RNA sequence: UGCUGUGUUUGGCAAUGGUAGAACUCACACUGGUGAGAUAACAGAAUCCGGUGGUUCUAGACUUGCCAACUACGGCU
Numbered sequence: 001u002g003c004u005g006u007g008u009u010u011g012g013c014a015a016u017g018g019u020a021g022a023a024c025u026c027a028c029a030c031u032g033g034u035g036a037g038a039u040a041a042c043a044g045a046a047u048c049c050g051g052u053g054g055u056u057c058u059a060g061a062c063u064u065g066c067c068a069a070c071u072a073c074g075g076c077u
Base pairs, nucleotide, nucleotide: 002076003075004074005073006072009069010068011067012066013065014064015063019059020058021057022056023055024054028053029052030051031050032049033048
Background: mir-182 microRNA precursor family: a 77-nucleotide RNA from Sarcophilus harrisii. It scores 100 bits against the family's covariance model. NCBI's taxonomy places the organism under Eukaryota, Vertebrata, Metatheria, Dasyuromorphia, Sarcophilus. On this family, see Tesfaye et al., Mol Reprod Dev 2009: "Identification and expression profiling of microRNAs during bovine oocyte maturation using heterologous approach". Its Rfam clan is "mir-182 clan". The family's consensus secondary structure was predicted with RNAalifold.